[Rfam]
A member of the RNA family "Selenocysteine transfer RNA" from Salibacterium salarium, 94 nucleotides long. The source organism's lineage runs through Bacteria, Bacillota, Caryophanales, Bacillaceae and Salibacterium. The base pairs follow the family's consensus structure, which is taken from published work.
RNA sequence: GGGGCCGGUUGCGAUGCUGGUGCACGCCGAAGUCUUCAAAACUUUCCUGGGAGGCGCGUGCCGUCUCCGCUGGGUUCGAUUCCCAGACGGUCCC
Numbered sequence: 001g002g003g004g005c006c007g008g009u010u011g012c013g014a015u016g017c018u019g020g021u022g023c024a025c026g027c028c029g030a031a032g033u034c035u036u037c038a039a040a041a042c043u044u045u046c047c048u049g050g051g052a053g054g055c056g057c058g059u060g061c062c063g064u065c066u067c068c069g070c071u072g073g074g075u076u077c078g079a080u081u082c083c084c085a086g087a088c089g090g091u092c093c094c
Stems, first nucleotide, its partner, number of pairs: 001094007009086001011027003015024003029045005050068005071085004